RNA sequence: UUAAAGGCAGUGAUGAGAAGGAUUACAUAUCAGAGUCAGUUUACAGAGAGAGGAUGUUUGGUGAAAGUCUUUAGCGAUAAGGUAUGGAAGGUAGUCUCUGAGCCGUGGAUUGAACAGCAUUGGCUAAUUAGAUUUCACCGGUUUCCACCGUUAUAUGGAUAUGACAUCGAUUGAUUUCUGUGUCAGAUGAGAGCCCUUUUUAAGGGAAUUUAGGUGGUACCACGGAUAAUGAUUAUUCGCCCUAGAC
Numbered sequence: 001u002u003a004a005a006g007g008c009a010g011u012g013a014u015g016a017g018a019a020g021g022a023u024u025a026c027a028u029a030u031c032a033g034a035g036u037c038a039g040u041u042u043a044c045a046g047a048g049a050g051a052g053g054a055u056g057u058u059u060g061g062u063g064a065a066a067g068u069c070u071u072u073a074g075c076g077a078u079a080a081g082g083u084a085u086g087g088a089a090g091g092u093a094g095u096c097u098c099u100g101a102g103c104c105g106u107g108g109a110u111u112g113a114a115c116a117g118c119a120u121u122g123g124c125u126a127a128u129u130a131g132a133u134u135u136c137a138c139c140g141g142u143u144u145c146c147a148c149c150g151u152u153a154u155a156u157g158g159a160u161a162u163g164a165c166a167u168c169g170a171u172u173g174a175u176u177u178c179u180g181u182g183u184c185a186g187a188u189g190a191g192a193g194c195c196c197u198u199u200u201u202a203a204g205g206g207a208a209u210u211u212a213g214g215u216g217g218u219a220c221c222a223c224g225g226a227u228a229a230u231g232a233u234u235a236u237u238c239g240c241c242c243u244a245g246a247c
Base pairs, nucleotide, nucleotide: 007103008102015098016097017096018095026086027085028084029083030082031081039075040074041073050072051071052070053069054068055067106137107136108134109133110132111131139150140149141148194206195205196204197203198202211244212243213242214241223239224238225237226236227235228234
Dot-bracket structure: ......((......((((.......((((((.......(((........((((((...........))))))))).....))))))........))))...))..((((((...................)))).)).(((......)))...........................................(((((...)))))....((((........((((((.....)))))).))))...
The record is a 247-nucleotide RNA from Acetitomaculum ruminis, which matches "T-box leader" in Rfam. It scores 119 bits against the family's covariance model. The family has 48 seed sequences and 19,395 matches in Rfam 15.1. The family's RNA type in Rfam is cis-regulatory leader.